[Rfam]
RNA sequence: GGAGCCUCGAGCCAAUAAAGACUAAGAACGUUGACUCAAAAUAAA
Dot-bracket structure: ......(.(((.((((.............)))).))).)......